RNA: terC RNA
RNA sequence: CCGCUGGUCCGGGCCCCUCUGGCAAGAGCGCCGGUUCUCUUGCGAUGUCGGACCUUUUUC
Numbered sequence: 001c002c003g004c005u006g007g008u009c010c011g012g013g014c015c016c017c018u019c020u021g022g023c024a025a026g027a028g029c030g031c032c033g034g035u036u037c038u039c040u041u042g043c044g045a046u047g048u049c050g051g052a053c054c055u056u057u058u059u060c
Base pairs, nucleotide, nucleotide: 006054007053008052009051010050011049012048022043023042024041025040026039027038028037